[Rfam]
RNA sequence: ACAGGGAUAGUUCGAGCUUGAGUUGCGAGUCGGGGGGAUCGUCCUCGUUAUCAACGUCAAAGCCAAUAAUAACUGGCAAAGAAAAACAAAACCUAGCUUUCGCUGCCUAAUAAGCAGUAGCAUAGCUGAUCCUCCGUGCAUCGCCCAUGUGCUACGGUAAGGGUCUCACUCUAAGUGGGCUACACUAGUUAAUCUCCGUCUGAGGUUAAAUAGAAGAGCUUAAUGAGACUAGCUGAAUGGAAGCCUGUUACCGGGCUGAUGUUUAUGCGAAAUGCUAAUACGGUGACUACGCUCGUAGAUAUUCAAGUGCCGAUAUUUCUGG
Numbered sequence: 001a002c003a004g005g006g007a008u009a010g011u012u013c014g015a016g017c018u019u020g021a022g023u024u025g026c027g028a029g030u031c032g033g034g035g036g037g038a039u040c041g042u043c044c045u046c047g048u049u050a051u052c053a054a055c056g057u058c059a060a061a062g063c064c065a066a067u068a069a070u071a072a073c074u075g076g077c078a079a080a081g082a083a084a085a086a087c088a089a090a091a092c093c094u095a096g097c098u099u100u101c102g103c104u105g106c107c108u109a110a111u112a113a114g115c116a117g118u119a120g121c122a123u124a125g126c127u128g129a130u131c132c133u134c135c136g137u138g139c140a141u142c143g144c145c146c147a148u149g150u151g152c153u154a155c156g157g158u159a160a161g162g163g164u165c166u167c168a169c170u171c172u173a174a175g176u177g178g179g180c181u182a183c184a185c186u187a188g189u190u191a192a193u194c195u196c197c198g199u200c201u202g203a204g205g206u207u208a209a210a211u212a213g214a215a216g217a218g219c220u221u222a223a224u225g226a227g228a229c230u231a232g233c234u235g236a237a238u239g240g241a242a243g244c245c246u247g248u249u250a251c252c253g254g255g256c257u258g259a260u261g262u263u264u265a266u267g268c269g270a271a272a273u274g275c276u277a278a279u280a281c282g283g284u285g286a287c288u289a290c291g292c293u294c295g296u297a298g299a300u301a302u303u304c305a306a307g308u309g310c311c312g313a314u315a316u317u318u319c320u321g322g
Base pairs, nucleotide, nucleotide: 002321003320004319005318006317007316008315009314011312014310016308017307018306019305020304021303022302023301026295027294028293029292030291031047032046033045034044035043036064037063039061098125099124102121103120104119105118106117128165129164130163131162132161133160134157135156136155137154138152139151140150141149143180144179145178146177147176148175185213186212187211189209190208191207192206193205198229199228200227201226203224232268233267234265235264236263237262238261239260243256244255245254247287248286249285250284253281

Annotation: transfer-messenger RNA: a 322-nucleotide sequence from Listeria grayi. The sequence is in the family's curated seed alignment. From the family's description: Bacterial tmRNA, also known as 10Sa RNA or SsrA, is named for its dual tRNA and mRNA-like properties. Its role is to liberate the mRNA from a stalled ribosome. To accomplish this part of the tmRNA is used as a reading frame that ends in a translation stop signal. The broken mRNA is replaced in the ribosome by the tmRNA and translation of the tmRNA leads to addition of a proteolysis tag to the incomplete protein enabling recognition by a protease. A reference for the family is Laslett et al. (2002), "BRUCE: a program for the detection of transfer-messenger RNA genes in nucleotide sequences", Nucleic Acids Res. Taxonomically the source falls in Listeria (Bacteria, Bacillota, Bacilli, Caryophanales).